[Rfam]
This 108-nucleotide RNA from Cicer arietinum belongs to the Rfam family "Small nucleolar RNA Z152/R70/R12/". The family has 9 seed sequences and 604 matches in Rfam 15.1. The organism belongs to Cicer, within Eukaryota. A search with the family's covariance model found it, with a score of 84 bits.
RNA sequence: UGUGCAAUGAUGAGAUGAAAACACCUAAUAGUGUUUUGGGCAGUGGACGUAACCUACAAGUUGCGCCGUGAGCCUAUUUAAUAACGACUUCUCCUUCCACUGAGCACU
Numbered sequence: 001u002g003u004g005c006a007a008u009g010a011u012g013a014g015a016u017g018a019a020a021a022c023a024c025c026u027a028a029u030a031g032u033g034u035u036u037u038g039g040g041c042a043g044u045g046g047a048c049g050u051a052a053c054c055u056a057c058a059a060g061u062u063g064c065g066c067c068g069u070g071a072g073c074c075u076a077u078u079u080a081a082u083a084a085c086g087a088c089u090u091c092u093c094c095u096u097c098c099a100c101u102g103a104g105c106a107c108u
Base pairs, nucleotide, nucleotide: 002107003106004105005104